[Rfam]
RNA sequence: GAGAGACAAGACGGCGACUAAGUCCAGAAGUCUCCGGCGUUUCGGGGAGGAAACGCCCGCUCUUCAGAGCGACUGCUCAAAAAUAAGGCCCGCUGCGAUUAUCCCCCGCAGCGGGCCAAAUUUUUGC
Numbered sequence: 001g002a003g004a005g006a007c008a009a010g011a012c013g014g015c016g017a018c019u020a021a022g023u024c025c026a027g028a029a030g031u032c033u034c035c036g037g038c039g040u041u042u043c044g045g046g047g048a049g050g051a052a053a054c055g056c057c058c059g060c061u062c063u064u065c066a067g068a069g070c071g072a073c074u075g076c077u078c079a080a081a082a083a084u085a086a087g088g089c090c091c092g093c094u095g096c097g098a099u100u101a102u103c104c105c106c107c108g109c110a111g112c113g114g115g116c117c118a119a120a121u122u123u124u125u126g127c
Stems, first nucleotide, its partner, number of pairs: 001035001003034005036057008065126002067078004085121001087117011
The family of this 127-nucleotide RNA sequence from Phenylobacterium hankyongense is "Caulobacter sRNA CrfA". The match comes from Rfam's covariance-model search (60 bits). The source organism's lineage runs through Bacteria, Pseudomonadati, Pseudomonadota, Alphaproteobacteria and Phenylobacterium. A reference for the family is Landt et al. (2008), "Small non-coding RNAs in Caulobacter crescentus", Mol Microbiol. Rfam classes the family as a small RNA.